[Rfam]
RNA sequence: ACGACUCGGUAUUGAGGCGAUGCUCGCUAAAACGAGCAUGUGGUAGCAGCCUGACGCAAGUCAGCCCGGCGUAUGCCGCGAACAGGACGAACUCCUGGGGUGCUAUGCAAGAACUAAACACAUCGUCGCUCCGAUGCACAGAUACCAGUCA
Dot-bracket structure: ..(((..((((((....(((((((((......))))))).))((((....(((((....)))))((((...........................))))...))))..................................)))))).))).
Numbered sequence: 001a002c003g004a005c006u007c008g009g010u011a012u013u014g015a016g017g018c019g020a021u022g023c024u025c026g027c028u029a030a031a032a033c034g035a036g037c038a039u040g041u042g043g044u045a046g047c048a049g050c051c052u053g054a055c056g057c058a059a060g061u062c063a064g065c066c067c068g069g070c071g072u073a074u075g076c077c078g079c080g081a082a083c084a085g086g087a088c089g090a091a092c093u094c095c096u097g098g099g100g101u102g103c104u105a106u107g108c109a110a111g112a113a114c115u116a117a118a119c120a121c122a123u124c125g126u127c128g129c130u131c132c133g134a135u136g137c138a139c140a141g142a143u144a145c146c147a148g149u150c151a
Stems, first nucleotide, its partner, number of pairs: 003150003008146006018042002020039007043106004051064005065099004

A member of the RNA family "EFASI RNA" from Candidatus Erwinia dacicola, 151 nucleotides long. Rfam classes the family as a small RNA. It scores 59 bits against the family's covariance model.